[Rfam]
RNA sequence: AAAGCUAAACAGACAAUCGCCGGUGACUUAUCGUCACGGGAGGAAAGUCCGGGCUCCACAGGGCAGGGUGCUGGAUAACAUCCAGUCAGCGCGAGUUGAAGGAUAGUGCCACAGAAAUGGACCGCCGAUGGCUGAUUUCUUCGGAAAUUAUGCACAGGUAAGGAUGGAACCGGGGUGUAAGAGACCCCGAGGAACGCUGGUGACUUCGUUCCUGGUAAACCCCAUCUGGAGCAAGACCUAAAGAGAUACGGCUUUUUUUCGAAAAAGCAGCCUUUGCCCGAGGUGUAUCGAGGUUGGUCGCUGGAGCCAAACAGUAAUGUUUGGCCUAGAUAGAUGAUUGUCGCCUAAAGUGGGAGGGUAGUUCCCGUCUGAACCACAAAAGGCACAGAACCCGGCUUACGAGAAGCUUUCCCC
Number, nucleotide and partner (000 for none) at each position: 001a410002a409003a408004g407005c406006u405007a000008a000009a000010c401011a000012g342013a341014c340015a339016a338017u337018c336019g000020c040021c039022g000023g037024u036025g035026a034027c033028u000029u000030a000031u000032c000033g027034u026035c025036a024037c023038g000039g021040g020041a000042g000043g000044a000045a398046a397047g396048u000049c395050c394051g393052g392053g391054c231055u230056c229057c228058a000059c000060a000061g279062g278063g277064c276065a000066g227067g226068g225069u224070g223071c085072u084073g083074g082075a081076u000077a000078a000079c000080a000081u075082c074083c073084a072085g071086u100087c098088a097089g096090c095091g000092c000093g000094a000095g090096u089097u088098g087099a000100a086101g222102g221103a000104u000105a000106g220107u219108g216109c215110c214111a000112c000113a000114g000115a000116a000117a000118u000119g000120g000121a000122c163123c162124g159125c158126c157127g000128a000129u154130g153131g000132c000133u000134g000135a000136u000137u000138u000139c000140u000141u000142c000143g000144g000145a000146a000147a000148u000149u000150a000151u000152g000153c130154a129155c000156a000157g126158g125159u124160a000161a000162g123163g122164a000165u000166g000167g000168a000169a000170c000171c189172g188173g187174g186175g185176u184177g000178u000179a000180a000181g000182a000183g000184a176185c175186c174187c173188c172189g171190a000191g212192g211193a210194a209195c208196g207197c000198u000199g204200g000201u000202g000203a000204c199205u000206u000207c196208g195209u194210u193211c192212c191213u000214g110215g109216u108217a000218a000219a107220c106221c102222c101223c070224a069225u068226c067227u066228g057229g056230a055231g054232c000233a000234a000235g299236a298237c297238c296239u000240a000241a000242a000243g000244a000245g289246a288247u287248a286249c285250g000251g000252c000253u000254u000255u000256u000257u000258u000259u000260c000261g000262a000263a000264a000265a000266a000267g000268c000269a000270g284271c283272c282273u281274u280275u000276g064277c063278c062279c061280g274281a273282g272283g271284u270285g249286u248287a247288u246289c245290g000291a000292g000293g000294u000295u000296g238297g237298u236299c235300g000301c000302u000303g000304g000305a000306g325307c324308c323309a322310a321311a320312c319313a318314g000315u000316a000317a000318u313319g312320u311321u310322u309323g308324g307325c306326c000327u000328a000329g000330a000331u000332a000333g000334a000335u000336g018337a017338u016339u015340g014341u013342c012343g000344c000345c000346u000347a000348a000349a000350g000351u000352g000353g000354g000355a000356g000357g000358g000359u000360a000361g000362u000363u000364c000365c000366c000367g000368u000369c000370u000371g000372a000373a000374c000375c000376a000377c000378a000379a000380a000381a000382g000383g000384c000385a000386c000387a000388g000389a000390a000391c053392c052393c051394g050395g049396c047397u046398u045399a000400c000401g010402a000403g000404a000405a006406g005407c004408u003409u002410u001411c000412c000413c000414c000

About this RNA
The record is a 414-nucleotide RNA from Paenibacillus nuruki, which matches "Bacterial RNase P class A" in Rfam. The base pairs follow the family's consensus structure, which is taken from published work. It scores 254 bits against the family's covariance model. Ribonuclease P (RNase P) is a ubiquitous endoribonuclease, found in archaea, bacteria and eukarya as well as chloroplasts and mitochondria. Its best characterised activity is the generation of mature 5'-ends of tRNAs by cleaving the 5'-leader elements of precursor-tRNAs. Cellular RNase Ps are ribonucleoproteins. Gene Ontology terms of the family: tRNA processing, ribonuclease P activity and dimeric ribonuclease P complex.